The family of this 73-nucleotide sequence from Orenia marismortui is "tRNA". Lineage of the source: Bacteria > Bacillati > Clostridia > Halanaerobiales > Orenia. By type it is a transfer RNA.
[Rfam]
RNA sequence: GGCGAGAUAGCUCAGUCGGUAGAGCAGAGGAUUGAAAAUCCUCGUGUCCCCGGUUCAAGUCCGGGUCUUGCCA
Number, nucleotide and partner (000 for none) at each position: 001g072002g071003c070004g069005a068006g067007a066008u000009a000010g025011c024012u023013c022014a000015g000016u000017c000018g000019g000020u000021a000022g013023a012024g011025c010026a000027g043028a042029g041030g040031a039032u000033u000034g000035a000036a000037a000038a000039u031040c030041c029042u028043c027044g000045u000046g000047u000048c000049c065050c064051c063052g062053g061054u000055u000056c000057a000058a000059g000060u000061c053062c052063g051064g050065g049066u007067c006068u005069u004070g003071c002072c001073a000

It scores 70 bits against the family's covariance model. The family's consensus secondary structure is taken from published work. Rfam 15.1 lists 5,335,975 matches to the family in 14,413 species. Rfam links the family to the GO term triplet codon-amino acid adaptor activity.